[Rfam]
RNA sequence: CCCUAGCCCUGAUAGUAGUGGAAAUCCUCGCCAUUUUUCUUGGCGAGAUUGUAACGGAUAGCAGGAUUGGCU
Numbered sequence: 001c002c003c004u005a006g007c008c009c010u011g012a013u014a015g016u017a018g019u020g021g022a023a024a025u026c027c028u029c030g031c032c033a034u035u036u037u038u039c040u041u042g043g044c045g046a047g048a049u050u051g052u053a054a055c056g057g058a059u060a061g062c063a064g065g066a067u068u069g070g071c072u
Stems, first nucleotide, its partner, number of pairs: 009064003013060002018055002023050004029045005
The family of this 72-nucleotide sequence from Flavobacterium psychrophilum is "Flavo-1 RNA". The source organism's lineage runs through Bacteria, Pseudomonadati, Flavobacteriia, Flavobacterium and Flavobacterium psychrophilum. Rfam classes the family as a small RNA. The sequence is in the family's curated seed alignment. The family's consensus secondary structure is taken from published work.